[Rfam]
Rfam assigns this 218-nucleotide sequence from Uliginosibacterium sp. TH139 to the family "Glycine riboswitch aptamer". NCBI's taxonomy places the organism under Bacteria, Pseudomonadati, Pseudomonadota, Betaproteobacteria, Uliginosibacterium.
RNA sequence: AAAAAUCUGGAGAGCGAUGCCUCACAGGCAUCCACCGAAGGGGCACGCGUCGUAUCGACCGGGUGCUUCAGAAGGUGAGCAAGCAAGUCGGCAACAAGGCGGUCCGCGCAGACAGUACGCAAGUACGGCGAGUGGGCGAGCGCAGUAGCCGGUUCGUACAGCCACCUUAUGAAGUUCUCAGGCGCAAUCUCUCAGGUACCAAGGACAGAUGGGGGCUG
Numbered sequence: 001a002a003a004a005a006u007c008u009g010g011a012g013a014g015c016g017a018u019g020c021c022u023c024a025c026a027g028g029c030a031u032c033c034a035c036c037g038a039a040g041g042g043g044c045a046c047g048c049g050u051c052g053u054a055u056c057g058a059c060c061g062g063g064u065g066c067u068u069c070a071g072a073a074g075g076u077g078a079g080c081a082a083g084c085a086a087g088u089c090g091g092c093a094a095c096a097a098g099g100c101g102g103u104c105c106g107c108g109c110a111g112a113c114a115g116u117a118c119g120c121a122a123g124u125a126c127g128g129c130g131a132g133u134g135g136g137c138g139a140g141c142g143c144a145g146u147a148g149c150c151g152g153u154u155c156g157u158a159c160a161g162c163c164a165c166c167u168u169a170u171g172a173a174g175u176u177c178u179c180a181g182g183c184g185c186a187a188u189c190u191c192u193c194a195g196g197u198a199c200c201a202a203g204g205a206c207a208g209a210u211g212g213g214g215g216c217u218g
Stems, first nucleotide, its partner, number of pairs: 005210005016032004034197003037193002041191003047185005